[Rfam]
RNA sequence: GGAACACGACCUUUACUCGGAUCGUCCGGCACGUUCCUGCCGGUGAGGGAGACACCA
Numbered sequence: 001g002g003a004a005c006a007c008g009a010c011c012u013u014u015a016c017u018c019g020g021a022u023c024g025u026c027c028g029g030c031a032c033g034u035u036c037c038u039g040c041c042g043g044u045g046a047g048g049g050a051g052a053c054a055c056c057a
Stems, first nucleotide, its partner, number of pairs: 010049006026043006
Dot-bracket structure: .........((((((..........((((((......))))))))))))........
msiK RNA: a 57-nucleotide RNA sequence from Streptomyces carminius. It scores 51 bits against the family's covariance model. Taxonomically the source falls in Streptomyces (Bacteria, Actinomycetota, Actinomycetes, Streptomycetaceae).